[Rfam]
The family of this 85-nucleotide RNA from Pelodiscus sinensis is "mir-142 microRNA precursor family". Gene Ontology terms of the family: miRNA-mediated post-transcriptional gene silencing and RISC complex.

RNA sequence: CAGUGGACUCCUCCAUAAAGUAGAAAGCACUACUAAACCGCAGCGUCCAGUGUAGUGUUUCCUACUUUAUGGAUGAGUGUACUGU
Number, nucleotide and partner (000 for none) at each position: 001c000002a000003g000004u000005g000006g000007a000008c000009u000010c000011c000012u000013c000014c071015a070016u069017a068018a067019a066020g065021u064022a063023g062024a000025a000026a059027g058028c057029a056030c055031u054032a053033c052034u000035a000036a000037a000038c000039c000040g000041c000042a000043g000044c000045g000046u000047c000048c000049a000050g000051u000052g033053u032054a031055g030056u029057g028058u027059u026060u000061c000062c023063u022064a021065c020066u019067u018068u017069a016070u015071g014072g000073a000074u000075g000076a000077g000078u000079g000080u000081a000082c000083u000084g000085u000
The base pairs follow the family's consensus structure, which was predicted with RNAalifold. It scores 99 bits against the family's covariance model. The source organism's lineage runs through Eukaryota, Archelosauria, Testudinata, Trionychidae and Pelodiscus.